The family of this 103-nucleotide RNA from Clostridium disporicum is "TPP riboswitch aptamer (THI element)". Taxonomically the source falls in Clostridium (Bacteria, Bacillati, Bacillota, Clostridia).
[Rfam]
RNA sequence: AUAAGGUGCUAGGGGUGCCAAUUGGCUGAGAGAUGAUUUUAUCAUUAACCCUUCUUUACCUGAUCUGGGUAAUACCAGCGUAGGGAAGCUAUAUACGGAUUUU
Numbered sequence: 001a002u003a004a005g006g007u008g009c010u011a012g013g014g015g016u017g018c019c020a021a022u023u024g025g026c027u028g029a030g031a032g033a034u035g036a037u038u039u040u041a042u043c044a045u046u047a048a049c050c051c052u053u054c055u056u057u058a059c060c061u062g063a064u065c066u067g068g069g070u071a072a073u074a075c076c077a078g079c080g081u082a083g084g085g086a087a088g089c090u091a092u093a094u095a096c097g098g099a100u101u102u103u
Stems, first nucleotide, its partner, number of pairs: 008089003011052004017026003033045005059084004065078004
A search with the family's covariance model found it, with a score of 74 bits.